Eukaryotic large subunit ribosomal RNA: a 423-nucleotide part of an RNA from Globodera rostochiensis. The match comes from Rfam's covariance-model search (3081 bits).
[Rfam]
RNA sequence: CGACCUGAACUCAGACGUGAACACCCGCUGAACUUAAGCAUAUCAGUAAGCGGAGGAAAAGAAACUAACGAGGAUUCCCGUAGUAACGGCGAGUGAACUGGGAAGAGUCCAGCGCUGAAUCACUUCUCCUCUGGGGUCGUGAGGUGUAGCGUACAGACCGUGAGCUUGGAUUGGCCUGCUUGUUCAAGUUUCCCUUGACCGGGGCUCCAGAGAAGGUGCAAGACCUGUCCAACGAGUGGUUGCCUAUCCAUCUUCGCGUGUCUUGGAGUCGGGUUGUUUGGGAUCGCAGCCCAAAGUAGGUGGUAAACUUCAUCUAAGACUGAAUACGGCCACGAGUCCGAUAGCGAACAAGUACCGUGAGGGAAAGUUGCAAAGCACUUUGAAGAGAGAGUUAAAGAGGACGUGAAACCGAUGAGAUGGAAA
Numbered sequence: 001c002g003a004c005c006u007g008a009a010c011u012c013a014g015a016c017g018u019g020a021a022c023a024c025c026c027g028c029u030g031a032a033c034u035u036a037a038g039c040a041u042a043u044c045a046g047u048a049a050g051c052g053g054a055g056g057a058a059a060a061g062a063a064a065c066u067a068a069c070g071a072g073g074a075u076u077c078c079c080g081u082a083g084u085a086a087c088g089g090c091g092a093g094u095g096a097a098c099u100g101g102g103a104a105g106a107g108u109c110c111a112g113c114g115c116u117g118a119a120u121c122a123c124u125u126c127u128c129c130u131c132u133g134g135g136g137u138c139g140u141g142a143g144g145u146g147u148a149g150c151g152u153a154c155a156g157a158c159c160g161u162g163a164g165c166u167u168g169g170a171u172u173g174g175c176c177u178g179c180u181u182g183u184u185c186a187a188g189u190u191u192c193c194c195u196u197g198a199c200c201g202g203g204g205c206u207c208c209a210g211a212g213a214a215g216g217u218g219c220a221a222g223a224c225c226u227g228u229c230c231a232a233c234g235a236g237u238g239g240u241u242g243c244c245u246a247u248c249c250a251u252c253u254u255c256g257c258g259u260g261u262c263u264u265g266g267a268g269u270c271g272g273g274u275u276g277u278u279u280g281g282g283a284u285c286g287c288a289g290c291c292c293a294a295a296g297u298a299g300g301u302g303g304u305a306a307a308c309u310u311c312a313u314c315u316a317a318g319a320c321u322g323a324a325u326a327c328g329g330c331c332a333c334g335a336g337u338c339c340g341a342u343a344g345c346g347a348a349c350a351a352g353u354a355c356c357g358u359g360a361g362g363g364a365a366a367g368u369u370g371c372a373a374a375g376c377a378c379u380u381u382g383a384a385g386a387g388a389g390a391g392u393u394a395a396a397g398a399g400g401a402c403g404u405g406a407a408a409c410c411g412a413u414g415a416g417a418u419g420g421a422a423a
Stems, first nucleotide, its partner, number of pairs: 024055001025053005035042002065072002076103005086094002106321004113151005119145001121143001123141001125139001128136001156262002169248003173244003178237007188205001191204004208212001215225002271292007298315005355362002378389004
Dot-bracket structure: .......................((((((.....((....))......))))).).........((....))...(((((.....((.....))....)))))..((((...(((((.(.(.(.(..(.......)..).).).).)))))....((...........(((.(((..(((((((...(..((((......)))))..(...)..((.......)).....)))))))....))).)))............))........(((((((........))))))).....(((((........)))))..)))).................................((....))...............((((....))))..................................